[Rfam]
RNA sequence: AAUAAAUGACGCCGUUGACUUUUGACACAACGUUUGACCAUUCAUCUUAUUCAAAAAUUUAAGUAAGUGUGAUUUAUUUUGUUGUGACCUGGUUUAUCAUUAAAGGAACUCUAAGCAUGACUCAUAUUUUUGUAUAUUUACACCAAUUUUUUUGAAUAAGACGAAUGGUCAAACGUCAUGGCAAAAGUCAAUGGCGUCAUUUAUU
Number, nucleotide and partner (000 for none) at each position: 001a000002a000003u000004a000005a000006a000007u000008g000009a000010c000011g000012c000013c000014g000015u000016u000017g000018a000019c000020u000021u000022u000023u000024g000025a000026c000027a179028c000029a000030a176031c175032g174033u173034u172035u171036g170037a169038c168039c167040a166041u165042u164043c163044a000045u161046c160047u159048u158049a157050u156051u000052c000053a000054a000055a000056a000057a000058u000059u000060u000061a000062a000063g000064u000065a000066a000067g000068u000069g000070u000071g000072a000073u000074u000075u000076a000077u000078u000079u000080u000081g000082u000083u000084g000085u000086g000087a000088c000089c000090u000091g000092g000093u000094u000095u000096a000097u000098c000099a000100u000101u000102a000103a000104a000105g000106g000107a000108a000109c000110u000111c000112u000113a000114a000115g000116c000117a000118u000119g000120a000121c000122u000123c000124a000125u000126a000127u000128u000129u000130u000131u000132g000133u000134a000135u000136a000137u000138u000139u000140a000141c000142a000143c000144c000145a000146a000147u000148u000149u000150u000151u000152u000153u000154g000155a000156a050157u049158a048159a047160g046161a045162c000163g043164a042165a041166u040167g039168g038169u037170c036171a035172a034173a033174c032175g031176u030177c000178a000179u027180g000181g000182c000183a000184a000185a000186a000187g000188u000189c000190a000191a000192u000193g000194g000195c000196g000197u000198c000199a000200u000201u000202u000203a000204u000205u000
RNA: MIR812 microRNA precursor family
Organism: Oryza meyeriana